[Rfam]
RNA sequence: CAUCUAAAUGAUGGAUAUUUUUCAUGUUAAAAGUAGCCUGAUUAUGUUGAUGAUAAUUUCAUUUCUGAUAGAUG
Numbered sequence: 001c002a003u004c005u006a007a008a009u010g011a012u013g014g015a016u017a018u019u020u021u022u023c024a025u026g027u028u029a030a031a032a033g034u035a036g037c038c039u040g041a042u043u044a045u046g047u048u049g050a051u052g053a054u055a056a057u058u059u060c061a062u063u064u065c066u067g068a069u070a071g072a073u074g
Stems, first nucleotide, its partner, number of pairs: 001074006
RNA: Small nucleolar RNA R21
Organism: Gossypium anomalum